Source information
A member of the RNA family "mir-365 microRNA precursor family" from Ictalurus punctatus, 61 nucleotides long. Its family is annotated with miRNA-mediated post-transcriptional gene silencing and RISC complex in the Gene Ontology. It is one of the family's seed sequences. The literature on the family includes a 2005 paper in Nature by Xie et al., "Systematic discovery of regulatory motifs in human promoters and 3' UTRs by comparison of several mammals".
RNA sequence: AGGGACUUUUAGGGGCAGCUGUGUUUUAUUAACCCAGUCAUAAUGCCCCUAAAAAUCCUUA
Numbered sequence: 001a002g003g004g005a006c007u008u009u010u011a012g013g014g015g016c017a018g019c020u021g022u023g024u025u026u027u028a029u030u031a032a033c034c035c036a037g038u039c040a041u042a043a044u045g046c047c048c049c050u051a052a053a054a055a056u057c058c059u060u061a
Stems, first nucleotide, its partner, number of pairs: 001060005007054003011050007020042004
Dot-bracket structure: (((((.(((.(((((((..((((...............)))).))))))).))).))))).